This 77-nucleotide sequence from Crocodylus porosus belongs to the Rfam family "Mammalian CPEB3 ribozyme".
[Rfam]
RNA sequence: AAACGUAAGUUCAAGGCCAAAGCAGAAAACACUCACAGUGCAGCCUGUCAGAUUCCAAUGAAUCUGCAAAUUCUACU
Numbered sequence: 001a002a003a004c005g006u007a008a009g010u011u012c013a014a015g016g017c018c019a020a021a022g023c024a025g026a027a028a029a030c031a032c033u034c035a036c037a038g039u040g041c042a043g044c045c046u047g048u049c050a051g052a053u054u055c056c057a058a059u060g061a062a063u064c065u066g067c068a069a070a071u072u073c074u075a076c077u
Base pairs, nucleotide, nucleotide: 015045016044017043021077022076024074025073026072027071030040031039049066050065051064052063053062054061055060

About this RNA: Lineage of the source: Eukaryota > Craniata > Teleostomi > Amniota > Crocodylus. Rfam describes the family as follows. The mammalian CPEB3 ribozyme is a self cleaving RNA located in the second intron of the CPEB3 gene which belongs to a family of genes regulating messenger RNA polyadenylation. The match comes from Rfam's covariance-model search (44 bits).